[Rfam]
RNA sequence: GCCUACUUAGCUCAGUUGGUAGAGCGUUAGACUUUUAAUCUAACGGUCAGGGGUUCGAGUCCCCUAGUGGGCU
Number, nucleotide and partner (000 for none) at each position: 001g072002c071003c070004u069005a068006c067007u066008u000009a000010g025011c024012u023013c022014a000015g000016u000017u000018g000019g000020u000021a000022g013023a012024g011025c010026g000027u043028u042029a041030g040031a039032c000033u000034u000035u000036u000037a000038a000039u031040c030041u029042a028043a027044c000045g000046g000047u000048c000049a065050g064051g063052g062053g061054u000055u000056c000057g000058a000059g000060u000061c053062c052063c051064c050065u049066a007067g006068u005069g004070g003071g002072c001073u000
RNA: tRNA